[Rfam]
Shown here is a 118-nucleotide RNA from Candidatus Epulonipiscioides saccharophilum, a member of the family "FMN riboswitch aptamer (RFN element)". The organism belongs to Candidatus Epulonipiscioides, within Bacteria.
RNA sequence: UCAAUUCUUCGGGGCGAGGCGUAAAUCCUCACCGGCGGUUAUAGUCCGUGAAUGCUUAGGCAUUGAUUUGGUGAAAUUCCAAAACCGACAGUUAUAGUCUGGAUGAGAGAAGAAUAGG
Number, nucleotide and partner (000 for none) at each position: 001u000002c000003a000004a115005u114006u113007c112008u111009u110010c109011g000012g000013g000014g000015c000016g000017a029018g028019g027020c000021g000022u000023a000024a000025a000026u000027c019028c018029u017030c000031a098032c097033c087034g086035g049036c048037g047038g046039u000040u000041a000042u000043a000044g085045u084046c038047c037048g036049u035050g000051a000052a063053u062054g061055c000056u000057u000058a000059g000060g000061c054062a053063u052064u000065g000066a000067u083068u082069u081070g080071g079072u000073g000074a000075a000076a000077u000078u000079c071080c070081a069082a068083a067084a045085c044086c034087g033088a000089c101090a100091g099092u000093u000094a000095u000096a000097g032098u031099c091100u090101g089102g000103a000104u000105g000106a000107g000108a000109g010110a009111a008112g007113a006114a005115u004116a000117g000118g000